[Rfam]
RNA sequence: GUGCCGUGAUGCGUUUUUUCCAACACGUCAUUCUGAAACCCAAAGUGUGGUGGCUUUUCGACUGAGCACA
Numbered sequence: 001g002u003g004c005c006g007u008g009a010u011g012c013g014u015u016u017u018u019u020c021c022a023a024c025a026c027g028u029c030a031u032u033c034u035g036a037a038a039c040c041c042a043a044a045g046u047g048u049g050g051u052g053g054c055u056u057u058u059c060g061a062c063u064g065a066g067c068a069c070a
Stems, first nucleotide, its partner, number of pairs: 001069004
Small nucleolar RNA SNORD63: a 70-nucleotide RNA from Ornithorhynchus anatinus. snoRNA U63 is found in both humans and mice. On this family, see Galardi et al., Mol Cell Biol 2002: "Purified box C/D snoRNPs are able to reproduce site-specific 2'-O-methylation of target RNA in vitro".